[Rfam]
Rfam assigns this 103-nucleotide RNA from Orenia marismortui to the family "Purine riboswitch aptamer". Taxonomically the source falls in Orenia (Bacteria, Bacillota, Clostridia, Halobacteroidaceae). Gene Ontology term of the family: purine nucleobase biosynthetic process. The family's consensus secondary structure is taken from published work.
RNA sequence: UAAAAACGAAUAUUAUUGCUCGGUAUAUUUGUAGGAAUAUGGCCUACACGUUUCUACCAAACGGCCUUAAACUGUUUGACUACUUGAGGAGAGUGAUUUAGGG
Numbered sequence: 001u002a003a004a005a006a007c008g009a010a011u012a013u014u015a016u017u018g019c020u021c022g023g024u025a026u027a028u029u030u031g032u033a034g035g036a037a038u039a040u041g042g043c044c045u046a047c048a049c050g051u052u053u054c055u056a057c058c059a060a061a062c063g064g065c066c067u068u069a070a071a072c073u074g075u076u077u078g079a080c081u082a083c084u085u086g087a088g089g090a091g092a093g094u095g096a097u098u099u100a101g102g103g
Base pairs, nucleotide, nucleotide: 019088020087021086022084023083024082025081030048031047032046033045034044035043058078059077060076061075062074063073064072